[Rfam]
RNA sequence: ACACCAUCCAGAGCGACUGAGAGAUCUGGCUCAACGACGUCGCAGCAACCACCCGACAGGGAGCGGUGCUACAGCCAGGACCGAUGGAGU
Numbered sequence: 001a002c003a004c005c006a007u008c009c010a011g012a013g014c015g016a017c018u019g020a021g022a023g024a025u026c027u028g029g030c031u032c033a034a035c036g037a038c039g040u041c042g043c044a045g046c047a048a049c050c051a052c053c054c055g056a057c058a059g060g061g062a063g064c065g066g067u068g069c070u071a072c073a074g075c076c077a078g079g080a081c082c083g084a085u086g087g088a089g090u
Stems, first nucleotide, its partner, number of pairs: 001090002004087005013043005021032003026078004044070004049066002052061003074082001
Description:
SAM riboswitch aptamer (S box leader): a 90-nucleotide RNA sequence from Arthrobacter sp. NIO-1057. About the family: The SAM riboswitch is found upstream of a number of genes which code for proteins involved in methionine or cysteine biosynthesis in Gram-positive bacteria. The SAM riboswitch acts at the level of transcription termination control. Pairs were carried over by alignment from the consensus structure, which is taken from published work.